[Rfam]
RNA sequence: AGCGCUGAUCUGAAUCAGCGCUGAGUGCAACCCCCAGUACCUGAUCCGGCUGGGGUUC
Numbered sequence: 001a002g003c004g005c006u007g008a009u010c011u012g013a014a015u016c017a018g019c020g021c022u023g024a025g026u027g028c029a030a031c032c033c034c035c036a037g038u039a040c041c042u043g044a045u046c047c048g049g050c051u052g053g054g055g056u057u058c
Base pairs, nucleotide, nucleotide: 001022002021003020004019005018006017007016008015029057030056032055033054034053035052036051037050038049

The record is a 58-nucleotide RNA from Burkholderiales bacterium JOSHI_001, which matches "L17-Actino-Proteobacteria ribosomal protein leader" in Rfam. The family's RNA type in Rfam is cis-regulatory leader. For this family Rfam cites "Discovery of 20 novel ribosomal leader candidates in bacteria and archaea" (Eckert and Weinberg, BMC Microbiol, 2020).